[Rfam]
RNA sequence: GCCCGGGGACGGCCCCGGGCCGUUCGCUUCAACGGGGACGACCCC
Numbered sequence: 001g002c003c004c005g006g007g008g009a010c011g012g013c014c015c016c017g018g019g020c021c022g023u024u025c026g027c028u029u030c031a032a033c034g035g036g037g038a039c040g041a042c043c044c045c
Stems, first nucleotide, its partner, number of pairs: 001020008034045004
RNA: Guanidine-II riboswitch aptamer (mini-ykkC)